[Rfam]
RNA sequence: CCGGUCAUCAUUUUCGUGAUUUUUGCAAUUUAGCUUUGAUCGAAUUGCAUAGUCACAAAAGUGAUGGCCGU
Dot-bracket structure: .(((((.(((((((.(((((...(((((((............)))))))..))))).))))))).))))).
RNA: mir-153 microRNA precursor family